[Rfam]
RNA sequence: UUGUCAGCUUACAUAAUCCUUACCUGUGUCUACUUUUGGAAGGCAGAAUAGAAAAUGAUGAUUGGAGUUUGUAUGGUAUGUGAUCAAUGAGUUUGCAUGGUCAGGACUUGCAACACCCGAUUGCUCCUGAU
Numbered sequence: 001u002u003g004u005c006a007g008c009u010u011a012c013a014u015a016a017u018c019c020u021u022a023c024c025u026g027u028g029u030c031u032a033c034u035u036u037u038g039g040a041a042g043g044c045a046g047a048a049u050a051g052a053a054a055a056u057g058a059u060g061a062u063u064g065g066a067g068u069u070u071g072u073a074u075g076g077u078a079u080g081u082g083a084u085c086a087a088u089g090a091g092u093u094u095g096c097a098u099g100g101u102c103a104g105g106a107c108u109u110g111c112a113a114c115a116c117c118c119g120a121u122u123g124c125u126c127c128u129g130a131u
Stems, first nucleotide, its partner, number of pairs: 024046003029042001031040001033038001075093002079089002081086001098123005104117002

Background
Rfam assigns this 131-nucleotide RNA sequence from Marmota marmota to the family "U8 small nucleolar RNA". Rfam links the family to the GO terms RNA processing and nucleolus. The base pairs follow the family's consensus structure, which is taken from published work.